Small nucleolar RNA SNORD91 family: a 95-nucleotide RNA sequence. For this family Rfam cites "RNomics: an experimental approach that identifies 201 candidates for novel, small, non-messenger RNAs in mouse" (Huttenhofer et al., EMBO J, 2001). Gene Ontology terms of the family: RNA processing and nucleolus. The family has 24 seed sequences and 977 matches in Rfam 15.1.
RNA sequence: CUUAAGAGCCAAUGAUGUUUUUAUUCAAAAUGUCUGAACCUGUCUGAAGCAUCCCAGUGAUGCAACUUCUGUGUGAUACUGAGGCUUUUUUGCCA
Number, nucleotide and partner (000 for none) at each position: 001c000002u000003u000004a089005a088006g087007a086008g085009c084010c083011a000012a000013u000014g000015a000016u000017g000018u000019u000020u000021u000022u000023a000024u000025u000026c000027a000028a000029a000030a000031u000032g000033u000034c000035u000036g000037a000038a000039c000040c000041u000042g000043u000044c000045u000046g000047a000048a000049g000050c000051a000052u000053c000054c000055c000056a000057g000058u000059g000060a000061u000062g000063c000064a000065a000066c000067u000068u000069c000070u000071g000072u000073g000074u000075g000076a000077u000078a000079c000080u000081g000082a000083g010084g009085c008086u007087u006088u005089u004090u000091u000092g000093c000094c000095a000